[Rfam]
RNA sequence: CGCCCCGUCAUCUGGGGAGUAGCCAGCCGCCGCAAGGCGGGCCUGCAUGUCAACAUACUUGGUCGAGAGGCCAUGGUGUGCAGGGAACGGGGAACCACCGUUCGGGCGAGACCAAUGGCACCGUUCCUCCGCUCGGCCGGGCGUGGGGAAGGGUGCUGUUGCUGUCUUGCUUACGCCCGGCCCC
Numbered sequence: 001c002g003c004c005c006c007g008u009c010a011u012c013u014g015g016g017g018a019g020u021a022g023c024c025a026g027c028c029g030c031c032g033c034a035a036g037g038c039g040g041g042c043c044u045g046c047a048u049g050u051c052a053a054c055a056u057a058c059u060u061g062g063u064c065g066a067g068a069g070g071c072c073a074u075g076g077u078g079u080g081c082a083g084g085g086a087a088c089g090g091g092g093a094a095c096c097a098c099c100g101u102u103c104g105g106g107c108g109a110g111a112c113c114a115a116u117g118g119c120a121c122c123g124u125u126c127c128u129c130c131g132c133u134c135g136g137c138c139g140g141g142c143g144u145g146g147g148g149a150a151g152g153g154u155g156c157u158g159u160u161g162c163u164g165u166c167u168u169g170c171u172u173a174c175g176c177c178c179g180g181c182c183c184c
Stems, first nucleotide, its partner, number of pairs: 027040003042084006050076003060073005089184004
Shown here is a 184-nucleotide RNA sequence from Erythrobacter sp. SG61-1L, a member of the family "Manganese Mn2+ riboswitch aptamer (yybP-ykoY)". The organism belongs to Erythrobacter, within Bacteria. A reference for the family is Argaman et al. (2001), "Novel small RNA-encoding genes in the intergenic regions of Escherichia coli", Curr Biol. It scores 47 bits against the family's covariance model. Pairs were carried over by alignment from the consensus structure.